This 85-nucleotide RNA from Desulforamulus hydrothermalis belongs to the Rfam family "c-di-GMP-I riboswitch aptamer". Its Rfam clan is "c-di-GMP_I riboswitch clan". It scores 85 bits against the family's covariance model.

[Rfam]
RNA sequence: GUAUUACAAAGGCAAACUCUUUGAAAAAAGAGGACGCAAAGCCACGGGCCUAAGGACCUUAGUCUAUGGCGGCCGGGUUGCCUUA
Number, nucleotide and partner (000 for none) at each position: 001g000002u000003a000004u000005u000006a000007c000008a000009a000010a000011g000012g037013c036014a000015a000016a000017c032018u031019c030020u029021u028022u027023g000024a000025a000026a000027a022028a021029a020030g019031a018032g017033g000034a000035c000036g013037c012038a000039a000040a079041g078042c077043c076044a000045c075046g074047g073048g070049c069050c068051u000052a000053a000054g000055g064056a063057c062058c000059u000060u000061a000062g057063u056064c055065u000066a000067u000068g050069g049070c048071g000072g000073c047074c046075g045076g043077g042078u041079u040080g000081c000082c000083u000084u000085a000